MIR390 microRNA precursor family: a 116-nucleotide RNA from Hibiscus syriacus. The family's consensus secondary structure was predicted with WAR. For this family Rfam cites "Expression of Arabidopsis MIRNA genes" (Xie et al., Plant Physiol, 2005).
[Rfam]
RNA sequence: UAGAAGAAUCUGUUAAGCUCAGGAGGGAUAGCGCCGCACAUGAUCUUCAAGUUUUUCUAAUAUGUAAAUCUGAUCCUCGCUAGUGCUAUCCAUCCUGAGUUCCAUGGGUUCUUCUU
Numbered sequence: 001u002a003g004a005a006g007a008a009u010c011u012g013u014u015a016a017g018c019u020c021a022g023g024a025g026g027g028a029u030a031g032c033g034c035c036g037c038a039c040a041u042g043a044u045c046u047u048c049a050a051g052u053u054u055u056u057c058u059a060a061u062a063u064g065u066a067a068a069u070c071u072g073a074u075c076c077u078c079g080c081u082a083g084u085g086c087u088a089u090c091c092a093u094c095c096u097g098a099g100u101u102c103c104a105u106g107g108g109u110u111c112u113u114c115u116u
Base pairs, nucleotide, nucleotide: 010107016101017100018099019098020097021096022095023094024093026091027090028089029088030087031086032085033084034083